Shown here is a 36-nucleotide sequence from Austwickia chelonae, a member of the family "abiF RNA". By type it is a small RNA. Rfam describes the family as follows. Actinobacteria, Bacteroidetes, Clostridia, Proteobacteria, one Clostridia phage.
RNA sequence: CCUCCCAAGCCUCUCAGCGAUGCUCAAAUGGGAGGG
Dot-bracket structure: ((((((.(((...........))).....)))))).